Shown here is a 163-nucleotide RNA from Dendrobium catenatum, a member of the family "small nucleolar RNA snoR143".
Rfam 15.1 lists 660 matches to the family in 212 species.
Gene Ontology terms of the family: nucleolus and RNA processing.
It scores 86 bits against the family's covariance model.
RNA sequence: CUGCACCUUGUGUCUGAUGGGUCCUCUGAUUUUUAUGGUGAGACCUCUAGUUCUGGUGCAUAAAGGAAAUGCUAUUUUUAUAGCAACGGCCAGACAACCGUAGAGAUGAAUCCACAGACAAAUGGUUUUUGUAUAAUUUGUCUACUGAUUUCAUCUCAAAUUC
Dot-bracket structure: .(((((.......(((..((.(.(.((.........)).).).))..))).....)))))..........................................((((((((........(((((.(........).))))).........))))))))......